Source information
The family of this 47-nucleotide sequence from Eucalyptus grandis is "Plastid-rpl16 group II-D1 intron". On this family, see Richter et al., Plant Commun 2023: "Retrograde signaling in plants: A critical review focusing on the GUN pathway and beyond". Pairs were carried over by alignment from the consensus structure, which was predicted with LocARNA. A search with the family's covariance model found it, with a score of 54 bits. The source organism's lineage runs through Eukaryota, Magnoliopsida, Gunneridae, Eucalypteae and Eucalyptus. About the family: Plastid-rpl16 is a non-coding RNA (ncRNA) recognised in plastids. It was recognised in and intronic region of a ribosome rpl16 gene.
RNA sequence: AAGAGCCUUGAACCAAUGUUGACUAAGAAGAUUGACUCAAGAACAAA
Number, nucleotide and partner (000 for none) at each position: 001a000002a000003g000004a000005g000006c000007c041008u040009u000010g038011a037012a000013c000014c034015a033016a032017u031018g000019u000020u000021g000022a000023c000024u000025a000026a000027g000028a000029a000030g000031a017032u016033u015034g014035a000036c000037u011038c010039a000040a008041g007042a000043a000044c000045a000046a000047a000